RNA sequence: UAAGUAAAUCGCCUUAUCGUUACGUCUUUGGCGUAAAGGAAAGUCCGAACACCGUAGUGCAACAUAGUGGUUAAAAGCCACCGGCCGAAAGGUUAGGAAAAGUGCAACAGAAAGAAUGUACGGGUAGUGCCGUAGUGAAAUCAGGUAAACUCUAUGUGGUGCAAUGCCAUGUAUACCAGCGUUUGAAAGUGGCACGCUUGAUUGCUGGAGGGUAGGCAGCUAAAGUUUGCUGGUAACAGUAAACGCAGAUAAAUGAUAAGGGUCGCGCCUUGGUGCGAUACAGAAUUCGGCUUAUAGAUUUGCUUAAAUA
Numbered sequence: 001u002a003a004g005u006a007a008a009u010c011g012c013c014u015u016a017u018c019g020u021u022a023c024g025u026c027u028u029u030g031g032c033g034u035a036a037a038g039g040a041a042a043g044u045c046c047g048a049a050c051a052c053c054g055u056a057g058u059g060c061a062a063c064a065u066a067g068u069g070g071u072u073a074a075a076a077g078c079c080a081c082c083g084g085c086c087g088a089a090a091g092g093u094u095a096g097g098a099a100a101a102g103u104g105c106a107a108c109a110g111a112a113a114g115a116a117u118g119u120a121c122g123g124g125u126a127g128u129g130c131c132g133u134a135g136u137g138a139a140a141u142c143a144g145g146u147a148a149a150c151u152c153u154a155u156g157u158g159g160u161g162c163a164a165u166g167c168c169a170u171g172u173a174u175a176c177c178a179g180c181g182u183u184u185g186a187a188a189g190u191g192g193c194a195c196g197c198u199u200g201a202u203u204g205c206u207g208g209a210g211g212g213u214a215g216g217c218a219g220c221u222a223a224a225g226u227u228u229g230c231u232g233g234u235a236a237c238a239g240u241a242a243a244c245g246c247a248g249a250u251a252a253a254u255g256a257u258a259a260g261g262g263u264c265g266c267g268c269c270u271u272g273g274u275g276c277g278a279u280a281c282a283g284a285a286u287u288c289g290g291c292u293u294a295u296a297g298a299u300u301u302g303c304u305u306a307a308a309u310a
Stems, first nucleotide, its partner, number of pairs: 001306010011295001012261007020036007041293003045290005050161004057195004062157005067081005082096001083094004097152002102150002104146002165218004176208005187199004225244008
RNA: Bacterial RNase P class A